[Rfam]
RNA sequence: CUCUGCCGGGUGACGGCCCCCUCCGAAACUGCUGCGGGGAGGGGGCUCGAUGGAAGCAGAG
Numbered sequence: 001c002u003c004u005g006c007c008g009g010g011u012g013a014c015g016g017c018c019c020c021c022u023c024c025g026a027a028a029c030u031g032c033u034g035c036g037g038g039g040a041g042g043g044g045g046c047u048c049g050a051u052g053g054a055a056g057c058a059g060a061g
Base pairs, nucleotide, nucleotide: 001061002060003059004058005057015047016046017045018044019043020042021041022040023039024038029037030036031035
RNA: Selenocysteine insertion sequence 1
Organism: Balaeniceps rex